[Rfam]
RNA: L2-Alphaproteobacteria ribosomal protein leader
Organism: Oceanicola granulosus
RNA sequence: GGGGACCUUCGGGGCCCUUCAACUGCCGGGUCGACCAGCGCCACGCGCCGCGAGAUCCGCAAAGCAACGGAAAGACAGUAA
Numbered sequence: 001g002g003g004g005a006c007c008u009u010c011g012g013g014g015c016c017c018u019u020c021a022a023c024u025g026c027c028g029g030g031u032c033g034a035c036c037a038g039c040g041c042c043a044c045g046c047g048c049c050g051c052g053a054g055a056u057c058c059g060c061a062a063a064g065c066a067a068c069g070g071a072a073a074g075a076c077a078g079u080a081a
Stems, first nucleotide, its partner, number of pairs: 001018004006014003025060001027059003031053002